[Rfam]
RNA: Bacterial large subunit ribosomal RNA, nucleotides 9 to 569
Nucleotides: 561
Stems, first nucleotide, its partner, number of pairs: 007556010022541001023506002027477002029474007036466002038174002046107003049062003068101007077089003112121003122141007143170002145167007178209001179207005189196002219226002229462001230257005240248002260459004268281005288401003292395004311387001313385010324372003330345005348352001354366003407431008438453005493500002516527004
Number, partner (000 for none) and nucleotide at each position: 001000u002000a003000c004000a005000a006000a007556g008555g009554g010553c011552g012551u013550a014549u015548g016547g017000u018000g019000a020000a021000u022541g023506c024505c025000u026000u027477g028476g029474g030473a031472a032471u033470a034469g035468g036466a037465g038174a039173c040000g041000a042000u043000g044000a045000a046107g047106g048105a049062c050061g051060c052000g053000a054000c055000u056000a057000c058000c059000u060051g061050c062049g063000a064000u065000a066000a067000g068101g069100u070099u071098c072097g073096g074095g075000g076000a077089g078088c079087u080000g081000g082000a083000a084000g085000u086000a087079a088078g089077c090000u091000u092000u093000g094000a095074u096073c097072c098071g099070g100069a101068c102000a103000u104000u105048u106047c107046c108000g109000a110000a111000u112121g113120g114119g115000g116000a117000a118000a119114c120113c121112c122141g123140g124139u125138g126137a127136g128135a129000u130000u131000a132000a133000u134000c135128u136127c137126u138125c139124a140123u141122c142000a143170u144169c145167c146166u147165a148164u149163a150162a151161u152000g153000a154000a155000u156000a157000c158000a159000u160000a161151g162150u163149u164148a165147u166146a167145g168000u169144g170143a171000a172000g173039g174038u175000a176000u177000a178209c179207c180206u181205a182204g183203g184000g185000a186000a187000u188000u189196g190195a191000a192000a193000c194000a195190u196189c197000u198000c199000a200000g201000u202000a203183c204182c205181u206180a207179g208000a209178g210000g211000a212000a213000a214000a215000g216000a217000a218000a219226g220225c221000g222000a223000a224000u225220g226219c227000g228000a229462u230257u231256c232255u233254c234253u235000c236000a237000g238000u239000a240248g241247c242000g243000g244000c245000g246000a247241g248240c249000g250000a251000a252000a253234g254233g255232g256231g257230a258000a259000c260459a261458g262457c263456c264000c265000a266000a267000a268281c269280c270279a271278g272277a273000u274000u275000u276000a277272u278271c279270u280269g281268g282000g283000g284000u285000u286000g287000u288401a289400g290399g291000a292395c293394c294393a295392u296000a297000u298000u299000a300000g301000u302000a303000g304000a305000g306000u307000u308000a309000c310000a311387a312000a313385a314384c315383u316382u317381g318380u319379u320378u321377a322376u323000a324372g325371u326370a327000g328000a329000a330345a331344u332343g333342g334341u335000u336000g337000g338000g339000a340000a341334a342333c343332c344331a345330u346000g347000c348352c349000a350000c351000a352348g353000a354366g355365g356364g357000u358000g359000a360000u361000a362000g363000c364356c365355c366354c367000g368000u369000a370326u371325a372324c373000g374000a375000a376322a377321u378320a379319a380318a381317c382316a383315a384314g385313u386000c387311u388000c389000g390000a391000a392295a393294u394293g395292g396000g397000a398000u399290c400289c401288u402000g403000a404000g405000u406000a407431c408430g409429g410428c411427g412426a413425g414424a415000c416000a417000c418000g419000u420000g421000a422000a423000a424414u425413c426412u427411u428410g429409u430408c431407g432000g433000a434000a435000u436000c437000c438453a439452c440451g441450c442449g443000g444000a445000c446000c447000a448000c449442c450441g451440c452439g453438u454000a455000a456263g457262g458261c459260u460000a461000a462229a463000u464000a465037c466036u467000a468035c469034c470033u471032a472031u473030u474029c475000a476028c477027c478000g479000a480000u481000a482000g483000u484000g485000a486000a487000c488000c489000a490000g491000u492000a493500c494499c495000g496000u497000g498000a499494g500493g501000g502000a503000a504000a505024g506023g507000u508000g509000a510000a511000a512000a513000g514000c515000a516527c517526c518525c519524c520000g521000g522000g523000a524519g525518g526517g527516g528000a529000g530000u531000g532000a533000a534000a535000u536000a537000g538000u539000a540000c541022c542000u543000g544000a545000a546000a547016c548015c549014a550013u551012a552011u553010g554009c555008c556007u557000a558000c559000a560000a561000g